[Rfam]
RNA sequence: AUCCCAUCGAGACCGGCUGAGGGAUGGGCCCGAUGACGCCGGGGCAACCCAGGCGGGCGCAAGCCCCCUGAAGGUGCCAAUUCCUGCGGCGGCCUUCGGGCUACCGGAAGAUGGGUC
Numbered sequence: 001a002u003c004c005c006a007u008c009g010a011g012a013c014c015g016g017c018u019g020a021g022g023g024a025u026g027g028g029c030c031c032g033a034u035g036a037c038g039c040c041g042g043g044g045c046a047a048c049c050c051a052g053g054c055g056g057g058c059g060c061a062a063g064c065c066c067c068c069u070g071a072a073g074g075u076g077c078c079a080a081u082u083c084c085u086g087c088g089g090c091g092g093c094c095u096u097c098g099g100g101c102u103a104c105c106g107g108a109a110g111a112u113g114g115g116u117c
Base pairs, nucleotide, nucleotide: 003115004114005113006112007111008110013042014041015040016039017038021031022030023029025086026085027084028083043078044077045076046075048074049073050070051069052068053067082109087106088105089104091102092101